[Rfam]
RNA: MIR474 microRNA precursor family
RNA sequence: UCCAAUAAUAUUAGGUCUGACUCGACAGCCAAACCCAAUGCUAUUGGGUCUAGCUGGGCUUGGCUGUCUAGCCGUACCUAAUGACAUUUUUAUAUU
Number, nucleotide and partner (000 for none) at each position: 001u094002c000003c000004a091005a090006u000007a088008a087009u086010a082011u081012u080013a079014g078015g077016u076017c000018u074019g073020a000021c071022u070023c000024g068025a067026c066027a065028g064029c063030c000031a051032a000033a049034c048035c047036c046037a045038a044039u043040g000041c000042u000043a039044u038045u037046g036047g035048g034049u033050c000051u031052a000053g000054c000055u000056g000057g000058g000059c000060u000061u000062g000063g029064c028065u027066g026067u025068c024069u000070a022071g021072c000073c019074g018075u000076a016077c015078c014079u013080a012081a011082u010083g000084a000085c000086a009087u008088u007089u000090u005091u004092a000093u000094a001095u000096u000